[Rfam]
RNA sequence: CCAGUAAGGGAGAAGCACCCUCUCAUUGGUUAGUGUAUAUUGCUUUGUCAACCAAUCAGAGAAUGCCAUUUAUCCUUUUUUG
Numbered sequence: 001c002c003a004g005u006a007a008g009g010g011a012g013a014a015g016c017a018c019c020c021u022c023u024c025a026u027u028g029g030u031u032a033g034u035g036u037a038u039a040u041u042g043c044u045u046u047g048u049c050a051a052c053c054a055a056u057c058a059g060a061g062a063a064u065g066c067c068a069u070u071u072a073u074c075c076u077u078u079u080u081u082g
Stems, first nucleotide, its partner, number of pairs: 003080002006077005012071003015066003020061004025056007033048003
RNA: mir-1179 microRNA precursor family
Organism: Chrysochloris asiatica